[Rfam]
RNA: L31-Actinobacteria ribosomal protein leader
RNA sequence: UCGGCCCCGGUUCACGCUGUCCGCAACCCGCGGCGGCGACCCGGUGCC
Numbered sequence: 001u002c003g004g005c006c007c008c009g010g011u012u013c014a015c016g017c018u019g020u021c022c023g024c025a026a027c028c029c030g031c032g033g034c035g036g037c038g039a040c041c042c043g044g045u046g047c048c
Stems, first nucleotide, its partner, number of pairs: 003048003007044004015038005021033003